The family of this 76-nucleotide sequence from Stakelama pacifica is "Makes More Granules Regulator RNA (mmgR)". Rfam 15.1 lists 1,791 matches to the family in 918 species. By type it is a small RNA. SuhB later renamed mmgR (makes more granules regulator) was a putative non-coding RNA found multiple times in the Agrobacterium tumefaciens genome and related alpha-proteobacteria. Other non-coding RNAs uncovered in the same analysis include: speF, ybhL, metA, and serC.Several studies inSinorhizobium meliloti showed that suhB element is indeed a non-coding RNA:firstly it was detected on Northern blot and called Sm8RNA, secondly in an RNAseq study referred to as SmelC689.The mutant phenotype's (strain lacking the small RNA) cytoplasm contains higher content of polyhydroxybutyrate (PBH)storage granules than wild type strain. The sRNA is required to limit the PBH intracellular accumulation when the nitrogen-fixing Sinorhizobium meliloti is under condition of surplus carbon in relation to nitrogen. It has been renamed to mmgR. Further study confirmed that mmgR fine-tunes the regulation of PBH storage.Northern blot confirmed the expression of the sRNA in other rhizobia species. MmgR homologues were found in most alpha-proteobacteria. The match comes from Rfam's covariance-model search (51 bits).
RNA sequence: AGGGGGUGCCUUUCAGGCAUCCUCUCCUAAACCUUUCAAGGCCGGUCCUUCGGGAUCGGCCCUUUUUUUGUUCGCG
Numbered sequence: 001a002g003g004g005g006g007u008g009c010c011u012u013u014c015a016g017g018c019a020u021c022c023u024c025u026c027c028u029a030a031a032c033c034u035u036u037c038a039a040g041g042c043c044g045g046u047c048c049u050u051c052g053g054g055a056u057c058g059g060c061c062c063u064u065u066u067u068u069u070g071u072u073c074g075c076g
Stems, first nucleotide, its partner, number of pairs: 008018004040061009